About this RNA:
U11 spliceosomal RNA: a 136-nucleotide RNA from Sinocyclocheilus rhinocerous. On this family, see Montzka and Steitz, Proc Natl Acad Sci U S A 1988: "Additional low-abundance human small nuclear ribonucleoproteins: U11, U12, etc". The base pairs follow the family's consensus structure, which is taken from published work. The family is grouped with related families in Rfam's "U1 clan". A search with the family's covariance model found it, with a score of 104 bits.
[Rfam]
RNA sequence: AAAAAGGGCAUCUGUUUUGUUUGGCAUAGCUGCGGAAGGGACUCUCUGACGCAGUUACGGAAUCGCUAUCAAGAGAUUUCGGAUGCGUAAUUUUUAAGACUCGGGGCUGCUAAUGACUGCUGUUCUUAGCGCCCCC
Number, nucleotide and partner (000 for none) at each position: 001a000002a000003a000004a000005a000006g000007g000008g086009c085010a084011u083012c082013u026014g025015u024016u023017u000018u000019g000020u000021u000022u000023g016024g015025c014026a013027u057028a056029g055030c054031u053032g052033c051034g050035g047036a000037a045038g044039g000040g000041a000042c000043u000044c038045u037046c000047u035048g000049a000050c034051g033052c032053a031054g030055u029056u028057a027058c081059g080060g079061a078062a077063u076064c075065g000066c000067u000068a000069u000070c000071a000072a000073g000074a000075g064076a063077u062078u061079u060080c059081g058082g012083a011084u010085g009086c008087g000088u000089a000090a000091u000092u000093u000094u000095u000096a000097a000098g000099a000100c000101u000102c000103g000104g134105g133106g132107c131108u000109g130110c129111u128112a127113a126114u000115g125116a124117c000118u122119g000120c000121u000122g118123u000124u116125c115126u113127u112128a111129g110130c109131g107132c106133c105134c104135c000136c000
Source information
Rfam 15.1 lists 2,595 matches to the family in 1,202 species.